Description: MIR2629 microRNA precursor family: a 73-nucleotide sequence from Medicago truncatula. A search with the family's covariance model found it, with a score of 65 bits. The source organism's lineage runs through Eukaryota, Embryophyta, Magnoliopsida, rosids and Medicago.
RNA sequence: UACUGAAGUCUUCCUCGGCAGUUAACUGCAGCCGGUUCUUUAAAAUUUCAGCAGUUAACUGCCGAAAGGUAUU
Numbered sequence: 001u002a003c004u005g006a007a008g009u010c011u012u013c014c015u016c017g018g019c020a021g022u023u024a025a026c027u028g029c030a031g032c033c034g035g036u037u038c039u040u041u042a043a044a045a046u047u048u049c050a051g052c053a054g055u056u057a058a059c060u061g062c063c064g065a066a067a068g069g070u071a072u073u
Stems, first nucleotide, its partner, number of pairs: 012069002015066001016064014